RNA sequence: UACCUCCCGUGCGGCGGUAUCUCGUGAACCUCCCCAGGGCCGGAAGGCAGCAAGGAUAAGCGAGCUCUGCCGGGUGCACGGGAGGCCUUU
Numbered sequence: 001u002a003c004c005u006c007c008c009g010u011g012c013g014g015c016g017g018u019a020u021c022u023c024g025u026g027a028a029c030c031u032c033c034c035c036a037g038g039g040c041c042g043g044a045a046g047g048c049a050g051c052a053a054g055g056a057u058a059a060g061c062g063a064g065c066u067c068u069g070c071c072g073g074g075u076g077c078a079c080g081g082g083a084g085g086c087c088u089u090u
Base pairs, nucleotide, nucleotide: 003085004084005083006082007081008080009079010078011077012074015072016071017070018069019068021064022063023062024061025060031056032055033054039048040047041046
Description: The record is a 90-nucleotide sequence from Micromonospora halophytica, which matches "Bacterial small signal recognition particle RNA" in Rfam. It scores 71 bits against the family's covariance model. For this family Rfam cites "SRPDB: Signal Recognition Particle Database" (Rosenblad et al., Nucleic Acids Res, 2003).